[Rfam]
RNA sequence: UGCACGUUGCCUUAGAUCCACAUUCCUGGGUGUGUUAGUCUGGUGCACCUGAUCAUAUUGCUCUUGUGGUCAAGUCAUCCUUCACCCAAACAACUUGACUGGCUGUUCAUGGAAUGUGCUUGAGUCAUAAGCGUGCUACACUAUUCUACCUCAGCUCUUAUGUUGUCAUACAGAGUGCUCAUUAAAACACUUUGUUAACAUCUGGCUGGGACAGU
Numbered sequence: 001u002g003c004a005c006g007u008u009g010c011c012u013u014a015g016a017u018c019c020a021c022a023u024u025c026c027u028g029g030g031u032g033u034g035u036u037a038g039u040c041u042g043g044u045g046c047a048c049c050u051g052a053u054c055a056u057a058u059u060g061c062u063c064u065u066g067u068g069g070u071c072a073a074g075u076c077a078u079c080c081u082u083c084a085c086c087c088a089a090a091c092a093a094c095u096u097g098a099c100u101g102g103c104u105g106u107u108c109a110u111g112g113a114a115u116g117u118g119c120u121u122g123a124g125u126c127a128u129a130a131g132c133g134u135g136c137u138a139c140a141c142u143a144u145u146c147u148a149c150c151u152c153a154g155c156u157c158u159u160a161u162g163u164u165g166u167c168a169u170a171c172a173g174a175g176u177g178c179u180c181a182u183u184a185a186a187a188c189a190c191u192u193u194g195u196u197a198a199c200a201u202c203u204g205g206c207u208g209g210g211a212c213a214g215u
Base pairs, nucleotide, nucleotide: 002136003135004134005133006132007131008130011124012123013122014121015120019118020117021116022115023114024113025112026111027088028087029086030085031084032083040074041073043071046068047067048066051063052062054060090106091105092104094102095101150210151209152208153207154206157204160201161200162199172193173192174191175190176189
Shown here is a 215-nucleotide RNA sequence from Biomphalaria glabrata, a member of the family "Small nucleolar RNA SNORA53". The organism belongs to Biomphalaria, within Eukaryota. A search with the family's covariance model found it, with a score of 65 bits.